The family of this 52-nucleotide RNA is "nhaA-I RNA".
Rfam's curators write: Acidobacteria, Alphaproteobacteria, Betaproteobacteria and Gammaproteobacteria, Verrucomicrobia, cand. division NC10.

RNA sequence: GGGUGCAGGGGUAGACGCUCCUGCAGGUAUUGAGAUGGUCGGGCCGCCAUCC
Numbered sequence: 001g002g003g004u005g006c007a008g009g010g011g012u013a014g015a016c017g018c019u020c021c022u023g024c025a026g027g028u029a030u031u032g033a034g035a036u037g038g039u040c041g042g043g044c045c046g047c048c049a050u051c052c
Stems, first nucleotide, its partner, number of pairs: 005024008034051006